[Rfam]
RNA sequence: CGCCGGCAUCCAGAAGCUUCUGCGAAGAAGCGCCAACCGGGACAGAACACCACGGUGGAAAAAGAACGAUGCGGGUCAAAAGCCAAUAAAGUUCUCUUCU
Numbered sequence: 001c002g003c004c005g006g007c008a009u010c011c012a013g014a015a016g017c018u019u020c021u022g023c024g025a026a027g028a029a030g031c032g033c034c035a036a037c038c039g040g041g042a043c044a045g046a047a048c049a050c051c052a053c054g055g056u057g058g059a060a061a062a063a064g065a066a067c068g069a070u071g072c073g074g075g076u077c078a079a080a081a082g083c084c085a086a087u088a089a090a091g092u093u094c095u096c097u098u099c100u
Stems, first nucleotide, its partner, number of pairs: 006072005017030005033058002037055003040051002045095001047093001074084003
RNA: SAM-I/IV (S-adenosyl methionine) riboswitch aptamer
Organism: Persicitalea jodogahamensis